[Rfam]
RNA sequence: GGAAGUGUGUGCUAGUGAUGGCACAGCUGAACAUUGAUCGCUAACGUAGAGAUAUGGCAGAUCUGCUCAGUGGGUGUUGUCACGUGAUGAAGUCGCUUCAAAUAGCUUCUUGUGAAUCGACUCCCGAUUGCGCGUGCAUCUUCGUGGCUCGUAUUACGACCUCGGAUUUGCACGCCUGCACGGUUGAGUCCUUCAAGUCGCUCCUCGAACCGCCGCGAUUUCCAAAUUGGGGGGCAAAUCGAGAGUAGGUCAGACGAGUCAUAAUUAGUCGCUUCCAUAUACAGGCACUGCUUGUAGAAAGCAGUUUGCCAUUUUUUG
Numbered sequence: 001g002g003a004a005g006u007g008u009g010u011g012c013u014a015g016u017g018a019u020g021g022c023a024c025a026g027c028u029g030a031a032c033a034u035u036g037a038u039c040g041c042u043a044a045c046g047u048a049g050a051g052a053u054a055u056g057g058c059a060g061a062u063c064u065g066c067u068c069a070g071u072g073g074g075u076g077u078u079g080u081c082a083c084g085u086g087a088u089g090a091a092g093u094c095g096c097u098u099c100a101a102a103u104a105g106c107u108u109c110u111u112g113u114g115a116a117u118c119g120a121c122u123c124c125c126g127a128u129u130g131c132g133c134g135u136g137c138a139u140c141u142u143c144g145u146g147g148c149u150c151g152u153a154u155u156a157c158g159a160c161c162u163c164g165g166a167u168u169u170g171c172a173c174g175c176c177u178g179c180a181c182g183g184u185u186g187a188g189u190c191c192u193u194c195a196a197g198u199c200g201c202u203c204c205u206c207g208a209a210c211c212g213c214c215g216c217g218a219u220u221u222c223c224a225a226a227u228u229g230g231g232g233g234g235c236a237a238a239u240c241g242a243g244a245g246u247a248g249g250u251c252a253g254a255c256g257a258g259u260c261a262u263a264a265u266u267a268g269u270c271g272c273u274u275c276c277a278u279a280u281a282c283a284g285g286c287a288c289u290g291c292u293u294g295u296a297g298a299a300a301g302c303a304g305u306u307u308g309c310c311a312u313u314u315u316u317u318g
Base pairs, nucleotide, nucleotide: 001276002275003274004273005272006271007270015083016082017081018080019079027070028069029068032065033064036063037062038061039060040058041057042056043055284310285309286308287305288304289303290302291301292300293299
This 318-nucleotide sequence from Dinoponera quadriceps belongs to the Rfam family "Arthropod 7SK RNA". Its Rfam clan is "7SK clan". The literature on the family includes a 2008 paper in Mol Biol Evol by Gruber et al., "Arthropod 7SK RNA". Rfam 15.1 lists 229 matches to the family in 137 species.